[Rfam]
RNA sequence: UCUGGCAGUGAUGACCCACUUGCCCUCACUGAGGACAGAGUUCGAUAAUGAGAACCUUUGUAUGGACUCAAGUUCUGAGCCAGA
Numbered sequence: 001u002c003u004g005g006c007a008g009u010g011a012u013g014a015c016c017c018a019c020u021u022g023c024c025c026u027c028a029c030u031g032a033g034g035a036c037a038g039a040g041u042u043c044g045a046u047a048a049u050g051a052g053a054a055c056c057u058u059u060g061u062a063u064g065g066a067c068u069c070a071a072g073u074u075c076u077g078a079g080c081c082a083g084a
Stems, first nucleotide, its partner, number of pairs: 001084006
RNA: Small nucleolar RNA SNORD103/SNORD85
Organism: Cavia porcellus